[Rfam]
RNA sequence: UAUGCAGGACAGGUGAUCGCGGCUGCAGGUGUCGAAAGACCGCAGGUGAGGAAAGUCCGGGCUUCAUAGGGCAGGAUGCCGGUUAACGGCCGGUGGAGGAAACUCUAAGGACAGUGCAACAGAAAUAUACCGCCACUUUUGUGGUAAGGGUGGAAUGGCAGUGUAAGAGACUACCGCCUCACUGGUAACAGGGAGGGCACAUGUAAACCCCAUCCGAAGCAAGACCGAAACAAAGCUUUGACGUGGCCCGCCAGCUUUAGGUAGGUCGCUUGAGGCGUCUGGCAACAGGCGUCCUAGAUAGAUGAUCACUCAACGACAUAACCCGGCUUAUCGUCCUGCGUAUUUU
Numbered sequence: 001u002a003u004g005c006a007g008g009a010c011a012g013g014u015g016a017u018c019g020c021g022g023c024u025g026c027a028g029g030u031g032u033c034g035a036a037a038g039a040c041c042g043c044a045g046g047u048g049a050g051g052a053a054a055g056u057c058c059g060g061g062c063u064u065c066a067u068a069g070g071g072c073a074g075g076a077u078g079c080c081g082g083u084u085a086a087c088g089g090c091c092g093g094u095g096g097a098g099g100a101a102a103c104u105c106u107a108a109g110g111a112c113a114g115u116g117c118a119a120c121a122g123a124a125a126u127a128u129a130c131c132g133c134c135a136c137u138u139u140u141g142u143g144g145u146a147a148g149g150g151u152g153g154a155a156u157g158g159c160a161g162u163g164u165a166a167g168a169g170a171c172u173a174c175c176g177c178c179u180c181a182c183u184g185g186u187a188a189c190a191g192g193g194a195g196g197g198c199a200c201a202u203g204u205a206a207a208c209c210c211c212a213u214c215c216g217a218a219g220c221a222a223g224a225c226c227g228a229a230a231c232a233a234a235g236c237u238u239u240g241a242c243g244u245g246g247c248c249c250g251c252c253a254g255c256u257u258u259a260g261g262u263a264g265g266u267c268g269c270u271u272g273a274g275g276c277g278u279c280u281g282g283c284a285a286c287a288g289g290c291g292u293c294c295u296a297g298a299u300a301g302a303u304g305a306u307c308a309c310u311c312a313a314c315g316a317c318a319u320a321a322c323c324c325g326g327c328u329u330a331u332c333g334u335c336c337u338g339c340g341u342a343u344u345u346u
Stems, first nucleotide, its partner, number of pairs: 001342010011331001012310007020048002023045004028040001053329003057326005062219004069249004074215005079093005094108001095106004109210002114208002116204003130149002132145005157175002160172003176198001177196004182191003223267004232258006243251002274293008
Notes: The family of this 346-nucleotide RNA from Agathobacter rectalis is "Bacterial RNase P class A". The family's RNA type in Rfam is ribozyme. The base pairs follow the family's consensus structure, which is taken from published work. Lineage of the source: Bacteria > Bacillati > Bacillota > Agathobacter > Agathobacter rectalis. Gene Ontology terms of the family: dimeric ribonuclease P complex, tRNA processing and ribonuclease P activity. A search with the family's covariance model found it, with a score of 293 bits.